[Rfam]
RNA sequence: AAUCUAAUAAACGUUAUACCUAAGACAGCAGGUGCCCUAGGGCUUAAUCUCCUGCCGAGGUGUGUGAGAUAUAAAGGCAGUCUGUUCCGACUGUUCCUUGUGAUCAUGCCUCCAUGUCGAAUGGAGGCAUUUUUCAUGUUAACUC
Numbered sequence: 001a002a003u004c005u006a007a008u009a010a011a012c013g014u015u016a017u018a019c020c021u022a023a024g025a026c027a028g029c030a031g032g033u034g035c036c037c038u039a040g041g042g043c044u045u046a047a048u049c050u051c052c053u054g055c056c057g058a059g060g061u062g063u064g065u066g067a068g069a070u071a072u073a074a075a076g077g078c079a080g081u082c083u084g085u086u087c088c089g090a091c092u093g094u095u096c097c098u099u100g101u102g103a104u105c106a107u108g109c110c111u112c113c114a115u116g117u118c119g120a121a122u123g124g125a126g127g128c129a130u131u132u133u134u135c136a137u138g139u140u141a142a143c144u145c
Base pairs, nucleotide, nucleotide: 028055029054030053031052032051034043035042036041106130107129108128109127110126111125112124113123114122115121

The record is a 145-nucleotide RNA sequence from Terribacillus sp. AE2B 122, which matches "Ribosomal protein L10 leader" in Rfam. From the family's description: This family is a putative r-protein leader autoregulatory structure found in B. subtilis and other low-GC Gram-positive bacteria. By type it is a cis-regulatory leader.